RNA sequence: GUUCUCCUGGCGUGUCCACAGGCGUGAGAUGCUCCCUCCCUCAUCAUCACGCGACGCGCCCGCCUGGCCUCGCUGGUCCCGGACCUGCGAGGCUUUUU
Dot-bracket structure: ........((((((((.........((((((..........)))).))....))))))))......(((((((.(.((...)).).))))))).....